[Rfam]
RNA sequence: UUCCAGUUCAAAGGGGAGUAGCGUUCGAGGAAACUCGAAAAUAAAGUCGUCAUUUCGUGGAAUCUCCACCGGCUUUAUUGACACUAAUUUGUGUUUAGCAAGACCUUUGCCUAAAUGGCAAAGGUCUUUUUUUGUGUUC
Numbered sequence: 001u002u003c004c005a006g007u008u009c010a011a012a013g014g015g016g017a018g019u020a021g022c023g024u025u026c027g028a029g030g031a032a033a034c035u036c037g038a039a040a041a042u043a044a045a046g047u048c049g050u051c052a053u054u055u056c057g058u059g060g061a062a063u064c065u066c067c068a069c070c071g072g073c074u075u076u077a078u079u080g081a082c083a084c085u086a087a088u089u090u091g092u093g094u095u096u097a098g099c100a101a102g103a104c105c106u107u108u109g110c111c112u113a114a115a116u117g118g119c120a121a122a123g124g125u126c127u128u129u130u131u132u133u134g135u136g137u138u139c
Stems, first nucleotide, its partner, number of pairs: 025038003040079010057069005

The family of this 139-nucleotide sequence from Litchfieldia salsa is "Manganese Mn2+ riboswitch aptamer (yybP-ykoY)". The organism belongs to Litchfieldia, within Bacteria. The family has 29 seed sequences and 1,126 matches in Rfam 15.1. The pairing is the family consensus, mapped onto this sequence. This RNA was originally discovered in E. coli during a large scale screen and was named SraF. The family was later found to exist upstream of related families of protein genes in many bacteria, including the the yybP and ykoK genes in B. subtilis. The specific functions of these proteins are unknown, but this structured RNA element may be involved in their genetic regulation as a riboswitch. For this family Rfam cites "Novel small RNA-encoding genes in the intergenic regions of Escherichia coli" (Argaman et al., Curr Biol, 2001).